Rfam assigns this 96-nucleotide sequence from Vibrio genomosp. F6 to the family "Group II catalytic intron D1-D4-1". From the family's description: Group II introns are found in rRNA, tRNA and mRNA of organelles in fungi, plants and protists, and also in mRNA in bacteria. Pairs were carried over by alignment from the consensus structure. Lineage of the source: Bacteria > Pseudomonadati > Vibrionaceae > Vibrio > Vibrio genomosp. F6.
RNA sequence: CUCUUUACGAGGUAACUCGUUAAGUGAUUAAGCAGAAGUCAGCAGACGGCAUAGUAGCCAAACGCCCAUCGUAAUGGUUGGGACAAGGUGAAGGCC
Numbered sequence: 001c002u003c004u005u006u007a008c009g010a011g012g013u014a015a016c017u018c019g020u021u022a023a024g025u026g027a028u029u030a031a032g033c034a035g036a037a038g039u040c041a042g043c044a045g046a047c048g049g050c051a052u053a054g055u056a057g058c059c060a061a062a063c064g065c066c067c068a069u070c071g072u073a074a075u076g077g078u079u080g081g082g083a084c085a086a087g088g089u090g091a092a093g094g095c096c
Stems, first nucleotide, its partner, number of pairs: 001026001004023002007020005038047003048096003057089003066081003